[Rfam]
RNA sequence: GGGUUGUGGGGGGUCACUCUAGGCCCCGCAGCACUGUGCUGGAUGUUGCAGCUGCCUAGGAGUGAUUUCACACAGUCC
Number, nucleotide and partner (000 for none) at each position: 001g078002g077003g076004u075005u074006g073007u072008g071009g000010g069011g068012g067013g066014u065015c064016a063017c062018u061019c060020u058021a057022g056023g055024c054025c000026c051027c000028g049029c048030a047031g046032c045033a044034c042035u041036g000037u000038g000039c000040u000041g035042g034043a000044u033045g032046u031047u030048g029049c028050a000051g026052c000053u000054g024055c023056c022057u021058a020059g000060g019061a018062g017063u016064g015065a014066u013067u012068u011069c010070a000071c008072a007073c006074a005075g004076u003077c002078c001
A member of the RNA family "mir-1301 microRNA precursor family" from Bos taurus, 78 nucleotides long. Taxonomically the source falls in Bos (Eukaryota, Vertebrata, Euteleostomi, Mammalia). The base pairs follow the family's consensus structure, which was predicted with RNAalifold.